Description
The record is a 129-nucleotide RNA from Tetracentron sinense, which matches "MIR530 microRNA precursor family" in Rfam. The family has 3 seed sequences and 119 matches in Rfam 15.1. The literature on the family includes a 2008 paper in Plant J by Lu et al., "Stress-responsive microRNAs in Populus". It scores 89 bits against the family's covariance model.

[Rfam]
RNA sequence: AUCAAGAUGUCGCAUUUAUCUGCAUUUGCACCUGCACCUCACUAGAUCUUUCUCUCUUCCCAGCUCUUCCUUCACAAGAGAAGUGCAGGUGCAGGUGCAGGUGCAGGUGCAGGUGAAUGCCAUCUUGGA
Numbered sequence: 001a002u003c004a005a006g007a008u009g010u011c012g013c014a015u016u017u018a019u020c021u022g023c024a025u026u027u028g029c030a031c032c033u034g035c036a037c038c039u040c041a042c043u044a045g046a047u048c049u050u051u052c053u054c055u056c057u058u059c060c061c062a063g064c065u066c067u068u069c070c071u072u073c074a075c076a077a078g079a080g081a082a083g084u085g086c087a088g089g090u091g092c093a094g095g096u097g098c099a100g101g102u103g104c105a106g107g108u109g110c111a112g113g114u115g116a117a118u119g120c121c122a123u124c125u126u127g128g129a
Base pairs, nucleotide, nucleotide: 002128003127004126005125006124007123008122009121012120013119015117016116017115018114019113020112021111022110023109024108025107026106027105028104029103030102031101032100033099034098035097036096037095038094039093